[Rfam]
RNA: Actino-pnp RNA
RNA sequence: CCCGGUCCUCGGUAGUAGGGAUUGGUGUCCUCCCCGGAGGACCGACGCCAGCAGGCGGCACGCCUCCCGGACACCAGUCGCUUCGAUCGAAGAUCGGC
Numbered sequence: 001c002c003c004g005g006u007c008c009u010c011g012g013u014a015g016u017a018g019g020g021a022u023u024g025g026u027g028u029c030c031u032c033c034c035c036g037g038a039g040g041a042c043c044g045a046c047g048c049c050a051g052c053a054g055g056c057g058g059c060a061c062g063c064c065u066c067c068c069g070g071a072c073a074c075c076a077g078u079c080g081c082u083u084c085g086a087u088c089g090a091a092g093a094u095c096g097g098c
Base pairs, nucleotide, nucleotide: 002097003096004095005094006093007092009090010089011088012087013086017082018081020079021078022077023076024075025074026073027072028071029070